[Rfam]
RNA: Small nucleolar RNA SNORA26
Organism: Ochotona princeps
RNA sequence: AGGCCCCCGUGCAGCUGAUGCUGUGCAGUGUGAGGCCAACACAGGAGGGCAGAGGAACCCUCCAUGACACCCAGGGAAGAGCCUGCCCACUCCUCUCUUGAGCCUGCCUGGAGGCACAGCU
Numbered sequence: 001a002g003g004c005c006c007c008c009g010u011g012c013a014g015c016u017g018a019u020g021c022u023g024u025g026c027a028g029u030g031u032g033a034g035g036c037c038a039a040c041a042c043a044g045g046a047g048g049g050c051a052g053a054g055g056a057a058c059c060c061u062c063c064a065u066g067a068c069a070c071c072c073a074g075g076g077a078a079g080a081g082c083c084u085g086c087c088c089a090c091u092c093c094u095c096u097c098u099u100g101a102g103c104c105u106g107c108c109u110g111g112a113g114g115c116a117c118a119g120c121u
Base pairs, nucleotide, nucleotide: 003050004049005048006047008045010043014040016038017037019035021032060113061112062111063110064109071100073098074097075096076095077094079092080091081090084089